[Rfam]
RNA sequence: ACGCCCGUUAAGGGCGCGUUAAUGAUUCCAAAGUAUGAAUCGAACCAUCCAGUUUGUCUGGAUGUCGAGUGGCUCUCCUGCCCACUCUGUUUGACGCCUCCCUGUUGACCUUCGAGCCGCCUCCAGGCGGCUCUUUUUUU
Dot-bracket structure: .((.((......))((...((.(........).))))...))....((((.........))))...((((((.........)))))).....((((......)))).......((((((((....)))))))).......
Record summary: This 140-nucleotide sequence from Allobosea thiooxidans belongs to the Rfam family "Alphaproteobacterial sRNA BjrC1505". Pairs were carried over by alignment from the consensus structure. By type it is a small RNA. A reference for the family is Madhugiri et al. (2012), "Small RNAs of the Bradyrhizobium/Rhodopseudomonas lineage and their analysis", RNA Biol.